Shown here is a 70-nucleotide sequence, a member of the family "L31-Actinobacteria ribosomal protein leader".
RNA sequence: GCGGUACCGGUUCACGCUUCCCACAUCUUCCACGGGUCCGCCCAUGGGCGUGCGGAGGCGCCCGGCGACC
Dot-bracket structure: ..(((.((((....((((((((((.........................))).))))))).))))..)))

Rfam's curators put it in the seed alignment.
Rfam classes the family as a cis-regulatory leader.